Rfam assigns this 89-nucleotide sequence from Dioscorea zingiberensis to the family "mir-160 microRNA precursor family". On this family, see Rhoades et al., Cell 2002: "Prediction of plant microRNA targets". A search with the family's covariance model found it, with a score of 75 bits.
RNA sequence: UUGUGCCUGGCUCCCUGCAUGCCACUCUGGUACUCCCAUCCUACUCUCAGAUUGGUUUCUCUGGGUGGCGUGCGAGGAGCCAAGCAUAC
Dot-bracket structure: .(((((.(((((((.(((((((((..(.(...............................).)..))))))))).))))))).))))).